[Rfam]
RNA sequence: AUUAGCGGGCAAAGAAGACCUUGUUGAGCUUGAUUCUAGUCUAACGUUGUGAAAUGACUUGAGAGGUGUAGGAUAAGUGGGAGCUCUCGGAUGAAAUUGAAAUACCACUACUUUUAAUGUUAUUUUACUUAUUCUGUGAAUCGAAGAUGGGGGACGACCCCUCUUUUUGGACCCAAGGUCGGCUUCGGAGGCGGCACAUUUGUUAAAAGGUAACACAGGUGUCCUAAGAUAAGUUCAACAAGAACAAAAAUCUUGUGUGGAAUAAAAGGGUAAAAGCUCGUUUAAUUCUGAUUCCCAGUACGAAUACGAACCAUGAAAGCGUGGCCUAUCAACCCUUUAGACCUUCUGAAUUUGAAGCUAGAGGUGUCAAAAAACUUACCACAGGGAUAACAAGCUUUUGGCAACCAAGCAUUCAUAGCGAAAUUGCUUUUUGAUCCUUCGGUGUUAGCUUUUCCUAUCAUUGUGAAACAGAAUUCACUAAGUGUUGGAUUGUUCACCCACCAAUAGGGAACGUGAGAUGGGUUUAGACCAUCGUGAGACAGAUUAGUUUUAUCUUACUGAUGGCC
Numbered sequence: 001a002u003u004a005g006c007g008g009g010c011a012a013a014g015a016a017g018a019c020c021u022u023g024u025u026g027a028g029c030u031u032g033a034u035u036c037u038a039g040u041c042u043a044a045c046g047u048u049g050u051g052a053a054a055u056g057a058c059u060u061g062a063g064a065g066g067u068g069u070a071g072g073a074u075a076a077g078u079g080g081g082a083g084c085u086c087u088c089g090g091a092u093g094a095a096a097u098u099g100a101a102a103u104a105c106c107a108c109u110a111c112u113u114u115u116a117a118u119g120u121u122a123u124u125u126u127a128c129u130u131a132u133u134c135u136g137u138g139a140a141u142c143g144a145a146g147a148u149g150g151g152g153g154a155c156g157a158c159c160c161c162u163c164u165u166u167u168u169g170g171a172c173c174c175a176a177g178g179u180c181g182g183c184u185u186c187g188g189a190g191g192c193g194g195c196a197c198a199u200u201u202g203u204u205a206a207a208a209g210g211u212a213a214c215a216c217a218g219g220u221g222u223c224c225u226a227a228g229a230u231a232a233g234u235u236c237a238a239c240a241a242g243a244a245c246a247a248a249a250a251u252c253u254u255g256u257g258u259g260g261a262a263u264a265a266a267a268g269g270g271u272a273a274a275a276g277c278u279c280g281u282u283u284a285a286u287u288c289u290g291a292u293u294c295c296c297a298g299u300a301c302g303a304a305u306a307c308g309a310a311c312c313a314u315g316a317a318a319g320c321g322u323g324g325c326c327u328a329u330c331a332a333c334c335c336u337u338u339a340g341a342c343c344u345u346c347u348g349a350a351u352u353u354g355a356a357g358c359u360a361g362a363g364g365u366g367u368c369a370a371a372a373a374a375c376u377u378a379c380c381a382c383a384g385g386g387a388u389a390a391c392a393a394g395c396u397u398u399u400g401g402c403a404a405c406c407a408a409g410c411a412u413u414c415a416u417a418g419c420g421a422a423a424u425u426g427c428u429u430u431u432u433g434a435u436c437c438u439u440c441g442g443u444g445u446u447a448g449c450u451u452u453u454c455c456u457a458u459c460a461u462u463g464u465g466a467a468a469c470a471g472a473a474u475u476c477a478c479u480a481a482g483u484g485u486u487g488g489a490u491u492g493u494u495c496a497c498c499c500a501c502c503a504a505u506a507g508g509g510a511a512c513g514u515g516a517g518a519u520g521g522g523u524u525u526a527g528a529c530c531a532u533c534g535u536g537a538g539a540c541a542g543a544u545u546a547g548u549u550u551u552a553u554c555u556u557a558c559u560g561a562u563g564g565c566c
Stems, first nucleotide, its partner, number of pairs: 001562005008556002012551002020385004025381002027377002030374002034177002040170002043167002046164001049128010059117007076109005083092001133157002181197001182195003198220006223324002229281002232278003235261002238256006262271002286310003291305004312321001314319001335363006343357004394435001396433001400428005409419002446521001447519001449517002451513001452510005459484002463478005486500003490496001527545002530542001532539002

Shown here is a 566-nucleotide part of an RNA from Gossypium armourianum, a member of the family "Eukaryotic large subunit ribosomal RNA". Rfam 15.1 lists 107,465 matches to the family in 2,616 species. The base pairs follow the family's consensus structure, which is taken from published work. A search with the family's covariance model found it, with a score of 2348 bits. NCBI's taxonomy places the organism under Eukaryota, Viridiplantae, Embryophyta, Euphyllophyta, Gossypium.